[Rfam]
RNA sequence: CUCUCUCUCUCUCUCUCUCUCUCUCUUUCUUUUAUAUAUAUAUAUAUAAAUAAAAGAAAGAGAGAGAGAGAGAGAGAGAGAGAG
Numbered sequence: 001c002u003c004u005c006u007c008u009c010u011c012u013c014u015c016u017c018u019c020u021c022u023c024u025c026u027u028u029c030u031u032u033u034a035u036a037u038a039u040a041u042a043u044a045u046a047u048a049a050a051u052a053a054a055a056g057a058a059a060g061a062g063a064g065a066g067a068g069a070g071a072g073a074g075a076g077a078g079a080g081a082g083a084g
Stems, first nucleotide, its partner, number of pairs: 001084033034047005

Rfam assigns this 84-nucleotide RNA from Paulinella micropora to the family "mir-4716 microRNA precursor family". Lineage of the source: Eukaryota > Rhizaria > Cercozoa > Imbricatea > Paulinella. Rfam 15.1 lists 57 matches to the family in 25 species. Pairs were carried over by alignment from the consensus structure, which was predicted with RNAalifold. Gene Ontology terms of the family: miRNA-mediated post-transcriptional gene silencing and RISC complex.